[Rfam]
RNA sequence: CCUGCCACUGUACCAGUCCUGUAAUGCACUGGCUGGUACGGUCCAGAGGUGAGCUGACAAGAUGCCGACUUAGGAAACAGAGUUAUUCUUCUUGUGGGUAACUUUGUGCUGAAGUCUGGGAACAGUU
Numbered sequence: 001c002c003u004g005c006c007a008c009u010g011u012a013c014c015a016g017u018c019c020u021g022u023a024a025u026g027c028a029c030u031g032g033c034u035g036g037u038a039c040g041g042u043c044c045a046g047a048g049g050u051g052a053g054c055u056g057a058c059a060a061g062a063u064g065c066c067g068a069c070u071u072a073g074g075a076a077a078c079a080g081a082g083u084u085a086u087u088c089u090u091c092u093u094g095u096g097g098g099u100a101a102c103u104u105u106g107u108g109c110u111g112a113a114g115u116c117u118g119g120g121a122a123c124a125g126u127u
Stems, first nucleotide, its partner, number of pairs: 005049002008046003018036002021033001022031002065120002068115002071113001073110002078106006086098003

Source information: This 127-nucleotide RNA from Sula dactylatra belongs to the Rfam family "Small nucleolar RNA SNORA65". For this family Rfam cites "RNomics: an experimental approach that identifies 201 candidates for novel, small, non-messenger RNAs in mouse" (Huttenhofer et al., EMBO J, 2001). Rfam 15.1 lists 1,089 matches to the family in 619 species. The family's RNA type in Rfam is H/ACA-box small nucleolar RNA. Gene Ontology terms of the family: nucleolus and RNA processing. Rfam's curators write: U65 belongs to the H/ACA class of snoRNAs which are thought to guide the sites of modification of uridines to pseudouridines.